[Rfam]
RNA sequence: GUCCGUUCAUCCUUAAUUGGACGCAUGUCAGCUAGCCAUGGAACGGGGGCUAGGU
Number, nucleotide and partner (000 for none) at each position: 001g000002u000003c000004c045005g044006u043007u042008c041009a000010u021011c020012c019013u000014u000015a000016a000017u000018u000019g012020g011021a010022c000023g000024c000025a000026u000027g000028u000029c000030a055031g000032c053033u052034a051035g050036c048037c047038a000039u000040g000041g008042a007043a006044c005045g004046g000047g037048g036049g000050c035051u034052a033053g032054g000055u030